[Rfam]
RNA sequence: UCCAUCGUGAGGUGGAAUCUGAAGGAAGCCGGAGGCAAAGUCCCGACUCGAUGAACAAGAACCACAUAAGAGGCUGACUUGAGGCGGACGAGUUUGCAUUACAAAACAAAGUCCAACACUACCCGAACCUCAUGCAGUAAAUGUGGCGAGUGCAUGGGAUGAAGGCGGUCGCU
Number, nucleotide and partner (000 for none) at each position: 001u016002c015003c014004a013005u012006c011007g000008u000009g000010a000011g006012g005013u004014g003015g002016a001017a000018u000019c000020u000021g000022a000023a000024g000025g000026a000027a000028g173029c000030c171031g170032g169033a000034g000035g166036c165037a000038a000039a000040g160041u159042c158043c157044c156045g155046a151047c150048u149049c148050g147051a000052u000053g000054a000055a000056c000057a000058a000059g000060a000061a000062c146063c145064a144065c143066a142067u141068a000069a000070g000071a000072g000073g138074c137075u136076g000077a000078c134079u000080u132081g131082a130083g129084g128085c000086g114087g113088a112089c111090g000091a000092g107093u106094u105095u104096g000097c000098a000099u000100u000101a000102c000103a000104a095105a094106a093107c092108a000109a000110a000111g089112u088113c087114c086115a000116a000117c000118a000119c000120u000121a000122c000123c000124c000125g000126a000127a000128c084129c083130u082131c081132a080133u000134g078135c000136a075137g074138u073139a000140a000141a067142u066143g065144u064145g063146g062147c050148g049149a048150g047151u046152g000153c000154a000155u045156g044157g043158g042159a041160u040161g000162a000163a000164g000165g036166c035167g000168g000169u032170c031171g030172c000173u028
The record is a 173-nucleotide sequence from Fonticella tunisiensis, which matches "Group II catalytic intron D1-D4-3" in Rfam.
Taxonomically the source falls in Fonticella (Bacteria, Bacillati, Eubacteriales, Clostridiaceae).